About this RNA:
Shown here is a 64-nucleotide sequence from Bombyx mori, a member of the family "mir-2774 microRNA precursor family". A reference for the family is Liu et al. (2010), "MicroRNAs of Bombyx mori identified by Solexa sequencing", BMC Genomics. Gene Ontology terms of the family: miRNA-mediated post-transcriptional gene silencing and RISC complex. Taxonomically the source falls in Bombyx (Eukaryota, Hexapoda, Obtectomera, Bombycidae). The family's consensus secondary structure was predicted with RNAalifold.

RNA sequence: ACAUCUUUCGGACCGUCGGUAUACCGAGCAAUAUCCGCUCGGUGGAAGAUCUUCCCUUUGUCGU
Numbered sequence: 001a002c003a004u005c006u007u008u009c010g011g012a013c014c015g016u017c018g019g020u021a022u023a024c025c026g027a028g029c030a031a032u033a034u035c036c037g038c039u040c041g042g043u044g045g046a047a048g049a050u051c052u053u054c055c056c057u058u059u060g061u062c063g064u
Base pairs, nucleotide, nucleotide: 005060010055011054012053015050016049017048020046022044023043024042025041026040027039028038029037